[Rfam]
RNA: c-di-GMP-I-GGC riboswitch aptamer
Organism: Neomoorella humiferrea
Nucleotides: 084
Stems, first nucleotide, its partner, number of pairs: 001084001003081002011036002016031006034070001039077004044073003047068003
Number, partner (000 for none) and nucleotide at each position: 001084c002000u003081c004080g005000u006000u007000c008000a009000a010000g011036g012035c013000a014000a015000a016031c017030c018029u019028g020027g021026c022000g023000a024000a025000a026021g027020c028019c029018a030017g031016g032000g033000g034070c035012g036011c037000a038000a039077a040076g041075c042074u043000a044073c045072g046071g047068g048067c049066c050000u051000g052000u053000a054000g055000a056000c057000g058000c059000u060000g061000u062000c063000c064000a065000u066049g067048g068047c069000c070034g071046c072045c073044g074042g075041g076040c077039u078000g079000c080004c081003g082000g083000g084001g